[Rfam]
Nucleotides: 214
Stems, first nucleotide, its partner, number of pairs: 002092006012084004018079003021075007028037003038062011103137012116123002141212007150201005163196004169190009
Number, partner (000 for none) and nucleotide at each position: 001000g002092c003091a004090u005089u006088u007087u008000c009000g010000a011000g012084c013083c014082a015081a016000a017000a018079g019078u020077g021075c022074g023073a024072a025071g026070c027069g028037c029036c030035u031000a032000c033000g034000c035030g036029g037028g038062g039061a040060a041059a042058u043057c044056a045055g046054u047053c048052c049000a050000c051000u052048g053047g054046a055045c056044u057043g058042a059041u060040u061039u062038c063000u064000g065000a066000u067000c068000c069027c070026g071025c072024u073023u074022c075021g076000a077020u078019g079018c080000a081015u082014u083013g084012g085000a086000a087007a088006a089005g090004g091003u092002g093000a094000u095000a096000a097000a098000a099000u100000a101000a102000a103137u104136a105135g106134u107133u108132a109131a110130g111129a112128c113127g114126g115000u116123u117122c118000c119000a120000g121000c122117g123116a124000c125000u126114c127113u128112g129111u130110u131109u132108u133107a134106a135105c136104u137103g138000g139000a140000a141212c142211u143210g144209c145208c146207u147206g148000g149000g150201c151200u152199u153198u154197g155000g156000g157000c158000u159000c160000a161000a162000u163196u164195g165194g166193a167000u168000u169190a170189g171188c172187c173186u174185u175184g176183c177182c178000a179000u180000u181000c182177g183176g184175c185174a186173g187172g188171g189170c190169u191000u192000u193166u194165c195164c196163a197154u198153a199152g200151g201150g202000a203000u204000u205000a206147c207146g208145g209144g210143c211142a212141g213000c214000g

Shown here is a 214-nucleotide sequence from Brucella abortus, a member of the family "Brucella sRNA CI153". The literature on the family includes a 2014 paper in FEMS Microbiol Lett by Dong et al., "Identification of novel sRNAs in Brucella abortus 2308". The family's consensus secondary structure was predicted with RNAfold. The source organism's lineage runs through Bacteria, Pseudomonadati, Pseudomonadota, Brucella and Brucella abortus.